RNA: eL15-Euryarchaeota ribosomal protein leader
RNA sequence: CCCGAGUACUCGGGACGACAUGUGGGAAGACGUCAAUGACGUCUUCCCGAAUCGCAAG
Numbered sequence: 001c002c003c004g005a006g007u008a009c010u011c012g013g014g015a016c017g018a019c020a021u022g023u024g025g026g027a028a029g030a031c032g033u034c035a036a037u038g039a040c041g042u043c044u045u046c047c048c049g050a051a052u053c054g055c056a057a058g
Stems, first nucleotide, its partner, number of pairs: 001014005016054003024048010